This 119-nucleotide RNA sequence belongs to the Rfam family "Group II catalytic intron D1-D4-2".
Rfam 15.1 lists 1,231 matches to the family in 625 species.
Rfam's curators put it in the seed alignment.
On this family, see Bonen and Vogel, Trends Genet 2001: "The ins and outs of group II introns".
Pairs were carried over by alignment from the consensus structure.
About the family: Group II introns are found in rRNA, tRNA and mRNA of organelles in fungi, plants and protists, and also in mRNA in bacteria.

RNA sequence: GGAGGUCGGCCCUCCGGAGCCAGCUUGCAGGAGCGGGCUUCAAACCGCCACAAGCUGCGGCAGUCAAAUGCUGCCGUGGUGAGCGUUGUUGGAAAAGGCGGAGUUAAACUCCGUCAGGU
Numbered sequence: 001g002g003a004g005g006u007c008g009g010c011c012c013u014c015c016g017g018a019g020c021c022a023g024c025u026u027g028c029a030g031g032a033g034c035g036g037g038c039u040u041c042a043a044a045c046c047g048c049c050a051c052a053a054g055c056u057g058c059g060g061c062a063g064u065c066a067a068a069u070g071c072u073g074c075c076g077u078g079g080u081g082a083g084c085g086u087u088g089u090u091g092g093a094a095a096a097g098g099c100g101g102a103g104u105u106a107a108a109c110u111c112c113g114u115c116a117g118g119u
Stems, first nucleotide, its partner, number of pairs: 001015005016041006023034004046118001048092002050089004054080002057077003061073004097115006